Background
Shown here is a 150-nucleotide RNA from Pararge aegeria, a member of the family "U12 minor spliceosomal RNA". Lineage of the source: Eukaryota > Eumetazoa > Protostomia > Allotriocarida > Pararge aegeria.
RNA sequence: GUGCCUCAAUCUAUUGAGUAAGGAAAUUAUUGGGCCUUGGUAACGCUUGGCUAUGUCCCGUUAGGGGCGGAAGUAUUUUUGAAAGGUUCAGGUCGUCCCUUUGAGUUGCGGGCCUACUUUGCACGCAAUUCGGGUGAAGCGAUCUGCCUU
Numbered sequence: 001g002u003g004c005c006u007c008a009a010u011c012u013a014u015u016g017a018g019u020a021a022g023g024a025a026a027u028u029a030u031u032g033g034g035c036c037u038u039g040g041u042a043a044c045g046c047u048u049g050g051c052u053a054u055g056u057c058c059c060g061u062u063a064g065g066g067g068c069g070g071a072a073g074u075a076u077u078u079u080u081g082a083a084a085g086g087u088u089c090a091g092g093u094c095g096u097c098c099c100u101u102u103g104a105g106u107u108g109c110g111g112g113c114c115u116a117c118u119u120u121g122c123a124c125g126c127a128a129u130u131c132g133g134g135u136g137a138a139g140c141g142a143u144c145u146g147c148c149u150u
Base pairs, nucleotide, nucleotide: 004023005022006021008019033052034051035050036049039046054069055068056067057066058065083150084149085148086147087146090145091144092143093142094141095140096139099134100133103131104130105129106128107127109125110124112122113121